[Rfam]
RNA sequence: AGGCCCAGAGAGAGGCAGGGUCUGAUCCGCAUCCUUCAUGGCAGGUGUUGAUCAGCUCUUGCCUCUCUCUCUCUCCA
Numbered sequence: 001a002g003g004c005c006c007a008g009a010g011a012g013a014g015g016c017a018g019g020g021u022c023u024g025a026u027c028c029g030c031a032u033c034c035u036u037c038a039u040g041g042c043a044g045g046u047g048u049u050g051a052u053c054a055g056c057u058c059u060u061g062c063c064u065c066u067c068u069c070u071c072u073c074u075c076c077a
Base pairs, nucleotide, nucleotide: 008069009068010067011066012065013064014063015062016061017060018059020057022055023054024053025052026051027050030047031046032045033044
Shown here is a 77-nucleotide sequence from Pipistrellus kuhlii, a member of the family "mir-574 microRNA precursor family".
Gene Ontology terms of the family: miRNA-mediated post-transcriptional gene silencing and RISC complex.
The base pairs follow the family's consensus structure, which was predicted with RNAalifold.
Taxonomically the source falls in Pipistrellus (Eukaryota, Amniota, Eutheria, Boreoeutheria).
A reference for the family is Lui et al. (2007), "Patterns of known and novel small RNAs in human cervical cancer", Cancer Res.